[Rfam]
RNA sequence: GGCCGCGUGGCUCAAUUGGCAGAGUAUCUGACUACGAUCAGUAGUUGCAUCAGGAGGUUGCAGGUUCGAGCCCUGCCGUGGUCA
Numbered sequence: 001g002g003c004c005g006c007g008u009g010g011c012u013c014a015a016u017u018g019g020c021a022g023a024g025u026a027u028c029u030g031a032c033u034a035c036g037a038u039c040a041g042u043a044g045u046u047g048c049a050u051c052a053g054g055a056g057g058u059u060g061c062a063g064g065u066u067c068g069a070g071c072c073c074u075g076c077c078g079u080g081g082u083c084a
Stems, first nucleotide, its partner, number of pairs: 001083007010025004027054005060076005
The record is an 84-nucleotide RNA sequence from Plectosphaerella plurivora, which matches "tRNA" in Rfam. Pairs were carried over by alignment from the consensus structure, which is taken from published work. The organism belongs to Plectosphaerella, within Eukaryota. Rfam describes the family as follows. Transfer RNA (tRNA) molecules are approximately 80 nucleotides in length. By type it is a transfer RNA. The match comes from Rfam's covariance-model search (52 bits).